[Rfam]
This 121-nucleotide sequence from Tsukamurella paurometabola belongs to the Rfam family "SAM (S-adenosyl methionine) riboswitch aptamer".

RNA sequence: GGUCAUGAGCGUCAGCGUGGAGCCCCGGCUUGCUGACCGGCAACCCUCCGCCGCGGUGGGGUGCCCCGGGUGAUGACCAGGUUUCUCGGCGGUCAGCCCCGUCGGGCGGCAAACGCGAGAA
Numbered sequence: 001g002g003u004c005a006u007g008a009g010c011g012u013c014a015g016c017g018u019g020g021a022g023c024c025c026c027g028g029c030u031u032g033c034u035g036a037c038c039g040g041c042a043a044c045c046c047u048c049c050g051c052c053g054c055g056g057u058g059g060g061g062u063g064c065c066c067c068g069g070g071u072g073a074u075g076a077c078c079a080g081g082u083u084u085c086u087c088g089g090c091g092g093u094c095a096g097c098c099c100c101g102u103c104g105g106g107c108g109g110c111a112a113a114c115g116c117g118a119g120a121a
Stems, first nucleotide, its partner, number of pairs: 001078004009038001011037006021030002039065003044061003048056002081110003085106008
A reference for the family is Weinberg et al. (2008), "The aptamer core of SAM-IV riboswitches mimics the ligand-binding site of SAM-I riboswitches", RNA. The source organism's lineage runs through Bacteria, Actinomycetes, Mycobacteriales, Tsukamurellaceae and Tsukamurella paurometabola.